Shown here is a 185-nucleotide sequence from Lysinibacillus odysseyi, a member of the family "Lysine riboswitch aptamer".
RNA sequence: AGAUGGGGUAGAGGUCGCGGUUUAUAAAAGUAUCCUAUUGGAGAUUUAGUGAAAUCUAGGAAAAUAGGAAAAAGGAUAAAUCGCCGAAGCUUUUUGAAAUCACUAUUUUCAAUAAAGCUGGGGCUGUACUCGAAUAGGGGCAGAACUGUCACAAUUCCUUUGAAUUGUGGAGAACUAUCACGACA
Numbered sequence: 001a002g003a004u005g006g007g008g009u010a011g012a013g014g015u016c017g018c019g020g021u022u023u024a025u026a027a028a029a030g031u032a033u034c035c036u037a038u039u040g041g042a043g044a045u046u047u048a049g050u051g052a053a054a055u056c057u058a059g060g061a062a063a064a065u066a067g068g069a070a071a072a073a074g075g076a077u078a079a080a081u082c083g084c085c086g087a088a089g090c091u092u093u094u095u096g097a098a099a100u101c102a103c104u105a106u107u108u109u110c111a112a113u114a115a116a117g118c119u120g121g122g123g124c125u126g127u128a129c130u131c132g133a134a135u136a137g138g139g140g141c142a143g144a145a146c147u148g149u150c151a152c153a154a155u156u157c158c159u160u161u162g163a164a165u166u167g168u169g170g171a172g173a174a175c176u177a178u179c180a181c182g183a184c185a
Base pairs, nucleotide, nucleotide: 007179008178009177010176011175017084018083019082020081021080022079023078024077025076033069034068035067036066037065038064039063088119089118090117091116092115093114094112095111096110097109098108099107120147121146124143125142126141127140129138130137149170150169151168152167153166154165155164

Riboswitches are metabolite binding domains within certain messenger RNAs that serve as precision sensors for their corresponding targets. Allosteric rearrangement of mRNA structure is mediated by ligand binding, and this results in modulation of gene expression.